Shown here is a 180-nucleotide RNA from Halopseudomonas laoshanensis, a member of the family "6S / SsrS RNA". The family's consensus secondary structure is taken from published work.
[Rfam]
RNA sequence: CUGUCCCUGGGGUGUUUGCCAGUCGGUGAUGUCCCUGAGCCGAUACUCCUGUAGAAGGAGGCCACGCGUUGCUGCCAGUGUGCAUGUCCGCAUGACGGAAAGCCUGAGGCAGUGCCGUGUCCCCCACCUUGAACUUUCGGGUUCAAGGGCUAACCCGACAGCGGCAUUUCCGGGGACUCU
Numbered sequence: 001c002u003g004u005c006c007c008u009g010g011g012g013u014g015u016u017u018g019c020c021a022g023u024c025g026g027u028g029a030u031g032u033c034c035c036u037g038a039g040c041c042g043a044u045a046c047u048c049c050u051g052u053a054g055a056a057g058g059a060g061g062c063c064a065c066g067c068g069u070u071g072c073u074g075c076c077a078g079u080g081u082g083c084a085u086g087u088c089c090g091c092a093u094g095a096c097g098g099a100a101a102g103c104c105u106g107a108g109g110c111a112g113u114g115c116c117g118u119g120u121c122c123c124c125c126a127c128c129u130u131g132a133a134c135u136u137u138c139g140g141g142u143u144c145a146a147g148g149g150c151u152a153a154c155c156c157g158a159c160a161g162c163g164g165c166a167u168u169u170c171c172g173g174g175g176a177c178u179c180u
Stems, first nucleotide, its partner, number of pairs: 003177009012167004017163003031150004036145006057125002061121001063119004068115001070114007082103002087099004
By type it is a non-coding RNA gene.
The match comes from Rfam's covariance-model search (114 bits).
The organism belongs to Halopseudomonas, within Bacteria.